This 274-nucleotide RNA from Fonsecaea pedrosoi belongs to the Rfam family "Fungal signal recognition particle RNA".
Clan: SRP clan.
The literature on the family includes a 2002 paper in Curr Opin Struct Biol by Wild et al., "Towards the structure of the mammalian signal recognition particle".
Taxonomically the source falls in Fonsecaea pedrosoi (Eukaryota, Fungi, Dikarya, Chaetothyriomycetidae).
Pairs were carried over by alignment from the consensus structure, which is taken from published work.

RNA sequence: UGGCUGUCAUGGUCAAAAAGUUAGGAGAUCACCUUGAGCCUGUUGGGCGUCGCUUCACACACCCACUUGUUCAGUCGUGCCUUGCUCGGAAUUUCGGGUCGUUCAUCGUACUCGUGUGUGCAGACCACGAUCGCUACGGAACGUUAAGUCAUUGGAAGUGACACUUGAGGGAAGCGAUUCUGCAGAGACUCUUCCACCCGGAGUUGGCGAUGUGAGAUUACACACUGGCAAGAUAUGCGAAGUCCCAGGUUCGAUGUGGGUGACCAACUUUUUU
Numbered sequence: 001u002g003g004c005u006g007u008c009a010u011g012g013u014c015a016a017a018a019a020g021u022u023a024g025g026a027g028a029u030c031a032c033c034u035u036g037a038g039c040c041u042g043u044u045g046g047g048c049g050u051c052g053c054u055u056c057a058c059a060c061a062c063c064c065a066c067u068u069g070u071u072c073a074g075u076c077g078u079g080c081c082u083u084g085c086u087c088g089g090a091a092u093u094u095c096g097g098g099u100c101g102u103u104c105a106u107c108g109u110a111c112u113c114g115u116g117u118g119u120g121c122a123g124a125c126c127a128c129g130a131u132c133g134c135u136a137c138g139g140a141a142c143g144u145u146a147a148g149u150c151a152u153u154g155g156a157a158g159u160g161a162c163a164c165u166u167g168a169g170g171g172a173a174g175c176g177a178u179u180c181u182g183c184a185g186a187g188a189c190u191c192u193u194c195c196a197c198c199c200g201g202a203g204u205u206g207g208c209g210a211u212g213u214g215a216g217a218u219u220a221c222a223c224a225c226u227g228g229c230a231a232g233a234u235a236u237g238c239g240a241a242g243u244c245c246c247a248g249g250u251u252c253g254a255u256g257u258g259g260g261u262g263a264c265c266a267a268c269u270u271u272u273u274u
Stems, first nucleotide, its partner, number of pairs: 001015004017271006029263005035253004040248003045245004050240004068230002071228005077223003081216005086210003090205009100143001103141001107138004112130005118125002144148001153196006164187003171180003